[Rfam]
RNA: ZMP/ZTP riboswitch aptamer (pfl RNA motif)
Organism: Pseudocoprococcus catus
RNA sequence: GUCAGUUUAUACGACUGACGGAAGUGGAAUUGACCACAGGAAGUAUGAAUGGAUUUGAAUGCCGACCGUCUGGGCAGUGAUG
Numbered sequence: 001g002u003c004a005g006u007u008u009a010u011a012c013g014a015c016u017g018a019c020g021g022a023a024g025u026g027g028a029a030u031u032g033a034c035c036a037c038a039g040g041a042a043g044u045a046u047g048a049a050u051g052g053a054u055u056u057g058a059a060u061g062c063c064g065a066c067c068g069u070c071u072g073g074g075c076a077g078u079g080a081u082g
Stems, first nucleotide, its partner, number of pairs: 003052001005050008015040002017070005024037004060076004